This 276-nucleotide sequence from Callithrix jacchus belongs to the Rfam family "Mason-Pfizer monkey virus packaging signal". The family's consensus secondary structure was predicted with PFOLD. Lineage of the source: Eukaryota > Metazoa > Deuterostomia > Euteleostomi > Callithrix. By type it is a cis-regulatory element. A search with the family's covariance model found it, with a score of 109 bits. Rfam 15.1 lists 2,921 matches to the family in 53 species. Its family is annotated with viral genome packaging in the Gene Ontology.

[Rfam]
RNA sequence: UGGCGCCCAACGUGAGAGCUCGAUUAUGAGGGACACAGUGAGGGAUGCCAUCGAGGUCAGCCGGCACAGAAGGAUUAAGAAACCCGGAGGAAAGAGUGUCAUGGGAACCUGCCACGGACUCACACUCCGAUAAGUGGACAGCAAAUAUGGGACAGAAAAUCAGCCAGCAUGAGUUGUUCAUAGAGAGAUUAAGUAAGGCUUUAAAGGCGCGGGGAGUAAAGGUGAAAAUAAAACGAUUGUGUAAAUAUUUUGACUAUAUUCAGGAUGUCUGCCCUU
Numbered sequence: 001u002g003g004c005g006c007c008c009a010a011c012g013u014g015a016g017a018g019c020u021c022g023a024u025u026a027u028g029a030g031g032g033a034c035a036c037a038g039u040g041a042g043g044g045a046u047g048c049c050a051u052c053g054a055g056g057u058c059a060g061c062c063g064g065c066a067c068a069g070a071a072g073g074a075u076u077a078a079g080a081a082a083c084c085c086g087g088a089g090g091a092a093a094g095a096g097u098g099u100c101a102u103g104g105g106a107a108c109c110u111g112c113c114a115c116g117g118a119c120u121c122a123c124a125c126u127c128c129g130a131u132a133a134g135u136g137g138a139c140a141g142c143a144a145a146u147a148u149g150g151g152a153c154a155g156a157a158a159a160u161c162a163g164c165c166a167g168c169a170u171g172a173g174u175u176g177u178u179c180a181u182a183g184a185g186a187g188a189u190u191a192a193g194u195a196a197g198g199c200u201u202u203a204a205a206g207g208c209g210c211g212g213g214g215a216g217u218a219a220a221g222g223u224g225a226a227a228a229u230a231a232a233a234c235g236a237u238u239g240u241g242u243a244a245a246u247a248u249u250u251u252g253a254c255u256a257u258a259u260u261c262a263g264g265a266u267g268u269c270u271g272c273c274c275u276u
Base pairs, nucleotide, nucleotide: 006032007031008030012027013026014025037051038048039047085129086128087127088126089125094121095120096119100116102114103113104112135155137153142149143148160203162201163199164198165197210252211251212250213249214248216246217245220238221237223235224234262275263274264273266271